This 46-nucleotide sequence from Fimbriiglobus ruber belongs to the Rfam family "Acido-Lenti-1 RNA". The source organism's lineage runs through Bacteria, Planctomycetia, Gemmatales, Gemmataceae and Fimbriiglobus. By type it is a small RNA. A search with the family's covariance model found it, with a score of 59 bits.
RNA sequence: CCCAGGGUUCACACCCUGGGCUAUUAUCUGCCACCCCUUCGGGGUU
Numbered sequence: 001c002c003c004a005g006g007g008u009u010c011a012c013a014c015c016c017u018g019g020g021c022u023a024u025u026a027u028c029u030g031c032c033a034c035c036c037c038u039u040c041g042g043g044g045u046u
Base pairs, nucleotide, nucleotide: 001020002019003018004017005016006015007014008013033045034044035043036042037041